[Rfam]
RNA: RNase MRP
RNA sequence: GGACAUCAGGACGAAGUGAGCGGGUUCUUCUUUGGACCCAGGAAAGUCCCCGGGCCCUUCACCGUAGAGAUACGGGCUCGGAAACGAGUAAGCUACGAGCCAGAGAGUUCCACUUGCUUUCGGGCAAAAGGCUGAGACAUGCGUGGAGCCUUGGAUCUCUUUCCGUAGCGACCUUGGCCGAUUUAACACAGUUAUUCACUUGGUCCAUUCAUGUGUUUGGACUAACUGAACGGGGAUUACGAUUCUGAUGUC
Numbered sequence: 001g002g003a004c005a006u007c008a009g010g011a012c013g014a015a016g017u018g019a020g021c022g023g024g025u026u027c028u029u030c031u032u033u034g035g036a037c038c039c040a041g042g043a044a045a046g047u048c049c050c051c052g053g054g055c056c057c058u059u060c061a062c063c064g065u066a067g068a069g070a071u072a073c074g075g076g077c078u079c080g081g082a083a084a085c086g087a088g089u090a091a092g093c094u095a096c097g098a099g100c101c102a103g104a105g106a107g108u109u110c111c112a113c114u115u116g117c118u119u120u121c122g123g124g125c126a127a128a129a130g131g132c133u134g135a136g137a138c139a140u141g142c143g144u145g146g147a148g149c150c151u152u153g154g155a156u157c158u159c160u161u162u163c164c165g166u167a168g169c170g171a172c173c174u175u176g177g178c179c180g181a182u183u184u185a186a187c188a189c190a191g192u193u194a195u196u197c198a199c200u201u202g203g204u205c206c207a208u209u210c211a212u213g214u215g216u217u218u219g220g221a222c223u224a225a226c227u228g229a230a231c232g233g234g235g236a237u238u239a240c241g242a243u244u245c246u247g248a249u250g251u252c
Base pairs, nucleotide, nucleotide: 002252003251004250005249006248007247008246009245010244011243014201015200016199017198018197019196022039023038024037025036026035027034044238045237048235049234050233051232063074064073065072066071076089077088078087079086080085092172094170102162103161104160105159106158119155120154121153129151130150131149132148139144203222204221205220206219207218